[Rfam]
RNA sequence: UAGUGUUGCAACUCUUAGAAUUUGUCUAGCAGGUGUUCUGGUUUUCACUGGAAAACUCCC
Numbered sequence: 001u002a003g004u005g006u007u008g009c010a011a012c013u014c015u016u017a018g019a020a021u022u023u024g025u026c027u028a029g030c031a032g033g034u035g036u037u038c039u040g041g042u043u044u045u046c047a048c049u050g051g052a053a054a055a056c057u058c059c060c
Base pairs, nucleotide, nucleotide: 032057033056034055036053037052038051039050040049041048042047
Shown here is a 60-nucleotide sequence from Carlito syrichta, a member of the family "U7 small nuclear RNA".
Rfam describes the family as follows. Animal histone pre-mRNAs are spliced by a different mechanism than nuclear pre-mRNAs and self-splicing introns. This processing involves the U7 snRNP, which contains only one RNA species: U7. The 5' end of U7 RNA is thought to base-pair to a conserved spacer element downstream of the cleavage site in histone pre-mRNA. This family contains a number of annotated U7 pseudogenes.
The base pairs follow the family's consensus structure, which was predicted with PFOLD.